The record is a 131-nucleotide RNA from Lepisosteus oculatus, which matches "Small nucleolar RNA SNORA49" in Rfam. Rfam links the family to the GO terms nucleolus and RNA processing.

RNA sequence: AUCCCCUCUCCUUACUCCAGGUGCUACUAGUGCAAUGUGGUGUCCUGGCAUUGUGUGGGGAUAGAGGACUAGGCUGUCUUCCCUCCCCAGCUGUAACUCUUAUACCUGGGGCCUAUAAGAGAGCCAACAUG
Numbered sequence: 001a002u003c004c005c006c007u008c009u010c011c012u013u014a015c016u017c018c019a020g021g022u023g024c025u026a027c028u029a030g031u032g033c034a035a036u037g038u039g040g041u042g043u044c045c046u047g048g049c050a051u052u053g054u055g056u057g058g059g060g061a062u063a064g065a066g067g068a069c070u071a072g073g074c075u076g077u078c079u080u081c082c083c084u085c086c087c088c089a090g091c092u093g094u095a096a097c098u099c100u101u102a103u104a105c106c107u108g109g110g111g112c113c114u115a116u117a118a119g120a121g122a123g124c125c126a127a128c129a130u131g
Stems, first nucleotide, its partner, number of pairs: 002061005008055001011053001017048005023041005072125003077121001085111006093105003
Annotation
The family has 21 seed sequences and 722 matches in Rfam 15.1. The base pairs follow the family's consensus structure, which was predicted with RNAalifold. It is annotated as an H/ACA-box small nucleolar RNA. Rfam describes the family as follows. The snoRNA ACA49 has no identified RNA target. NCBI's taxonomy places the organism under Eukaryota, Eumetazoa, Chordata, Actinopterygii, Lepisosteus.